[Rfam]
RNA sequence: GUAUCUGUUGCUGGCUGCGCUUGAUGGUGGCUCCCUUGGGCCCCACCACCAGCCCCACCACGCAGUAGGGGAC
Numbered sequence: 001g002u003a004u005c006u007g008u009u010g011c012u013g014g015c016u017g018c019g020c021u022u023g024a025u026g027g028u029g030g031c032u033c034c035c036u037u038g039g040g041c042c043c044c045a046c047c048a049c050c051a052g053c054c055c056c057a058c059c060a061c062g063c064a065g066u067a068g069g070g071g072a073c
Base pairs, nucleotide, nucleotide: 004069005068006067007066008065009064010063011062012060013059014058017055019053020052021051023049025048026047027046028045030043033040034039
RNA: mir-1905 microRNA precursor family
Organism: Chaetorhynchus papuensis